This 94-nucleotide RNA sequence from Branchiostoma floridae belongs to the Rfam family "mir-2060 microRNA precursor family".
The organism belongs to Branchiostoma, within Eukaryota.
It scores 74 bits against the family's covariance model.
RNA sequence: GUUUGCCUCUGUGUGGAAGGUGUUCAGCACCAGGGACAGGUGUGUUAACCUAUGUGUGGGUAGUGUUCAGCACCAAGGACGGGUGUAUGUACCU
Numbered sequence: 001g002u003u004u005g006c007c008u009c010u011g012u013g014u015g016g017a018a019g020g021u022g023u024u025c026a027g028c029a030c031c032a033g034g035g036a037c038a039g040g041u042g043u044g045u046u047a048a049c050c051u052a053u054g055u056g057u058g059g060g061u062a063g064u065g066u067u068c069a070g071c072a073c074c075a076a077g078g079a080c081g082g083g084u085g086u087a088u089g090u091a092c093c094u
Stems, first nucleotide, its partner, number of pairs: 004085005010079001019074006026067005032061001034055001036053001038051004